[Rfam]
Streptomyces sRNA 4677: a 244-nucleotide RNA from Streptomyces poonensis. The base pairs follow the family's consensus structure. A search with the family's covariance model found it, with a score of 187 bits. Rfam 15.1 lists 563 matches to the family in 285 species. Rfam classes the family as a small RNA. Located in the intergenic region between anti-sigma factor SCO4677 gene and a putative regulatory protein gene SCO4676. scr4677 expression requires the SCO4677 activity and scr4677 sRNA itself seem to affect the levels of the SCO4676-associated transcripts.

RNA sequence: UGCUCCGGUGACGUCGGCGCCUUUCUCCAAGAAACGAGAGGGGAAAAGGAACCCCACCAAGCCCCACCCCUCCCGCCCGUAGGUCGCACUCACUCGGGCGGGUGAACAUCCCCGCAUCGGCUGGCUUUCGCGGCCCCCGACACCCCUACGCUCAGCCGAGACAACCGCAGACAUGCAUCGGCCCCCGGCCGGGACUCGCAAUCCCGAUCGAGGGCCUGACCACGAGGAAGAAAGCACCUUCCCA
Numbered sequence: 001u002g003c004u005c006c007g008g009u010g011a012c013g014u015c016g017g018c019g020c021c022u023u024u025c026u027c028c029a030a031g032a033a034a035c036g037a038g039a040g041g042g043g044a045a046a047a048g049g050a051a052c053c054c055c056a057c058c059a060a061g062c063c064c065c066a067c068c069c070c071u072c073c074c075g076c077c078c079g080u081a082g083g084u085c086g087c088a089c090u091c092a093c094u095c096g097g098g099c100g101g102g103u104g105a106a107c108a109u110c111c112c113c114g115c116a117u118c119g120g121c122u123g124g125c126u127u128u129c130g131c132g133g134c135c136c137c138c139g140a141c142a143c144c145c146c147u148a149c150g151c152u153c154a155g156c157c158g159a160g161a162c163a164a165c166c167g168c169a170g171a172c173a174u175g176c177a178u179c180g181g182c183c184c185c186c187g188g189c190c191g192g193g194a195c196u197c198g199c200a201a202u203c204c205c206g207a208u209c210g211a212g213g214g215c216c217u218g219a220c221c222a223c224g225a226g227g228a229a230g231a232a233a234g235c236a237c238c239u240u241c242c243c244a
Stems, first nucleotide, its partner, number of pairs: 008223003016077004090105006120156005180216005186210002191205004226242005